[Rfam]
RNA sequence: UCCUCCUCGCAUUCACUGCCGGGGCCAUUAUGUGUAAUUUAACGUUCAUAAGGCACGCGGUGAAUGCCAAGAGCG
Numbered sequence: 001u002c003c004u005c006c007u008c009g010c011a012u013u014c015a016c017u018g019c020c021g022g023g024g025c026c027a028u029u030a031u032g033u034g035u036a037a038u039u040u041a042a043c044g045u046u047c048a049u050a051a052g053g054c055a056c057g058c059g060g061u062g063a064a065u066g067c068c069a070a071g072a073g074c075g
Stems, first nucleotide, its partner, number of pairs: 003073003009067008018058002026053001028051005
A member of the RNA family "mir-124 microRNA precursor family" from Arctia plantaginis, 75 nucleotides long. The family's consensus secondary structure was predicted with PFOLD. NCBI's taxonomy places the organism under Eukaryota, Insecta, Erebidae, Arctiini, Arctia. Gene Ontology terms of the family: miRNA-mediated post-transcriptional gene silencing and RISC complex.